[Rfam]
RNA sequence: AGCACUUGAUCAGGUUUUGUCUUCCACUGUAGACAAAAAACCUGGAACCUAGUGCUUAGAAAAAACCCUUCUUUUGCAACCCACAGCUGAUAAAUGUAUUGGUUGUGUUACUUAUAUGAAGGGACAAU
Number, nucleotide and partner (000 for none) at each position: 001a056002g055003c054004a053005c052006u051007u000008g049009a000010u047011c000012a000013g042014g041015u040016u039017u036018u035019g034020u033021c000022u000023u000024c000025c000026a000027c000028u000029g000030u000031a000032g000033a020034c019035a018036a017037a000038a000039a016040a015041c014042c013043u000044g000045g000046a000047a010048c000049c008050u000051a006052g005053u004054g003055c002056u001057u000058a000059g000060a000061a000062a000063a000064a000065a000066c000067c123068c122069u121070u000071c000072u119073u118074u000075u116076g115077c000078a000079a000080c000081c000082c107083a106084c105085a104086g103087c102088u101089g100090a099091u098092a000093a000094a000095u000096g000097u000098a091099u090100u089101g088102g087103u086104u085105g084106u083107g082108u000109u000110a000111c000112u000113u000114a000115u076116a075117u000118g073119a072120a000121g069122g068123g067124a000125c000126a000127a000128u000
The record is a 128-nucleotide sequence from Alaudala cheleensis, which matches "Small nucleolar RNA SNORA40" in Rfam. The match comes from Rfam's covariance-model search (60 bits). Rfam classes the family as an H/ACA-box small nucleolar RNA. Pairs were carried over by alignment from the consensus structure, which was predicted with RNAalifold. From the family's description: The snoRNA ACA 40 belongs to the H/ACA family of snoRNAs and guides the pseudouridylation of 28S rRNA subunit at position U4565. NB This family has a high threshold value to exclude a large number of closely related sequences that do not appear to have conserved H and ACA boxes, and may be pseudogenes. The organism belongs to Alaudala, within Eukaryota.